[Rfam]
RNA sequence: UCCGACAAAGGCAAACUUAUUGAAAAGUAAGGACGCAAAGUUACAGGUCUAAGGUAAUAUCUAUGAUGGCUGAACUACCGAAG
Numbered sequence: 001u002c003c004g005a006c007a008a009a010g011g012c013a014a015a016c017u018u019a020u021u022g023a024a025a026a027g028u029a030a031g032g033a034c035g036c037a038a039a040g041u042u043a044c045a046g047g048u049c050u051a052a053g054g055u056a057a058u059a060u061c062u063a064u065g066a067u068g069g070c071u072g073a074a075c076u077a078c079c080g081a082a083g
Stems, first nucleotide, its partner, number of pairs: 001083001003080002011036002016031006034069001039076004044072003047067003
Background
Rfam assigns this 83-nucleotide RNA sequence from Dethiosulfatibacter aminovorans to the family "c-di-GMP-I-GGC riboswitch aptamer". NCBI's taxonomy places the organism under Bacteria, Bacillota, Tissierellia, Dethiosulfatibacter, Dethiosulfatibacter aminovorans. The base pairs follow the family's consensus structure, which is taken from published work.